[Rfam]
RNA sequence: GGAUAACACUUUUUGCUAUCCCCAGCCAAUAACGCAAUAACAUGUAGGAUAACUUUUCCACGUAUCAUUGUGUUAUUGGUCGGGAAUAGCAAAACAAUGAUAUCC
Numbered sequence: 001g002g003a004u005a006a007c008a009c010u011u012u013u014u015g016c017u018a019u020c021c022c023c024a025g026c027c028a029a030u031a032a033c034g035c036a037a038u039a040a041c042a043u044g045u046a047g048g049a050u051a052a053c054u055u056u057u058c059c060a061c062g063u064a065u066c067a068u069u070g071u072g073u074u075a076u077u078g079g080u081c082g083g084g085a086a087u088a089g090c091a092a093a094a095c096a097a098u099g100a101u102a103u104c105c
Base pairs, nucleotide, nucleotide: 002104003103004102005101011094012093013092014091015090016089017088018087019086021084022083023082025080026079027078028077029076030075031074032073033072034071035070036069037068038067040065042063043062044061045060047058048057049056
RNA: MIR6274 microRNA precursor family
Organism: Prunus yedoensis